[Rfam]
RNA: Metazoan signal recognition particle RNA
RNA sequence: CAGGGGCAUGUGACGAAUGCCUGUCAACACGAGUCGUUAACGUGUCUAAACACAUCCAUGAAUCCUAUCGGUCUGGCAUAGUCUGUCUUCACGCCAUGUUGAUACGGGUUCCCUGGAAGCCUUCUGUAAGCUAGGGGUUUCUCACUGAAGAGAGAGAAAUCCUACGCUUUAAACAUCCCCGUACCGCCCGAGGCAGGGAAACUGAGCAGGGAAAAGGGGGGGCAAAUGGCAGUCCAGGGAGAGACUCUGUAGAAUGGCUGGGCAGAUUCCCUGUCUGAUUUGAUUUGAGACUGGGGCGUUU
Numbered sequence: 001c002a003g004g005g006g007c008a009u010g011u012g013a014c015g016a017a018u019g020c021c022u023g024u025c026a027a028c029a030c031g032a033g034u035c036g037u038u039a040a041c042g043u044g045u046c047u048a049a050a051c052a053c054a055u056c057c058a059u060g061a062a063u064c065c066u067a068u069c070g071g072u073c074u075g076g077c078a079u080a081g082u083c084u085g086u087c088u089u090c091a092c093g094c095c096a097u098g099u100u101g102a103u104a105c106g107g108g109u110u111c112c113c114u115g116g117a118a119g120c121c122u123u124c125u126g127u128a129a130g131c132u133a134g135g136g137g138u139u140u141c142u143c144a145c146u147g148a149a150g151a152g153a154g155a156g157a158a159a160u161c162c163u164a165c166g167c168u169u170u171a172a173a174c175a176u177c178c179c180c181g182u183a184c185c186g187c188c189c190g191a192g193g194c195a196g197g198g199a200a201a202c203u204g205a206g207c208a209g210g211g212a213a214a215a216g217g218g219g220g221g222g223c224a225a226a227u228g229g230c231a232g233u234c235c236a237g238g239g240a241g242a243g244a245c246u247c248u249g250u251a252g253a254a255u256g257g258c259u260g261g262g263c264a265g266a267u268u269c270c271c272u273g274u275c276u277g278a279u280u281u282g283a284u285u286u287g288a289g290a291c292u293g294g295g296g297c298g299u300u301u
Stems, first nucleotide, its partner, number of pairs: 002047002004022006027045005050299002053296001055295004063288002067284002069277003073273001075271002080268006088262004093258005099252001103251005108245003111239007119230003123226001125224003129168003134163010145152002176220005187211003194204003